Overview
Rfam assigns this 109-nucleotide RNA sequence from Mesobacillus selenatarsenatis to the family "BsrF". On this family, see Saito et al., Gene 2008: "Novel small RNA-encoding genes in the intergenic regions of Bacillus subtilis". The organism belongs to Mesobacillus selenatarsenatis, within Bacteria. A search with the family's covariance model found it, with a score of 99 bits.
RNA sequence: GCGAUGAGCUGAAUUGUGUAAGCCGACAGACACUCCUUUAUGGAAAUGCACGAUGUGGCGUGCAGUCAGUCGCCUCAAUACGCAGAAAAGACGCCUUUUGGGCGUCUUU
Numbered sequence: 001g002c003g004a005u006g007a008g009c010u011g012a013a014u015u016g017u018g019u020a021a022g023c024c025g026a027c028a029g030a031c032a033c034u035c036c037u038u039u040a041u042g043g044a045a046a047u048g049c050a051c052g053a054u055g056u057g058g059c060g061u062g063c064a065g066u067c068a069g070u071c072g073c074c075u076c077a078a079u080a081c082g083c084a085g086a087a088a089a090g091a092c093g094c095c096u097u098u099u100g101g102g103c104g105u106c107u108u109u
Stems, first nucleotide, its partner, number of pairs: 014078003018074001024072004029067003034043002047064002050061003087109009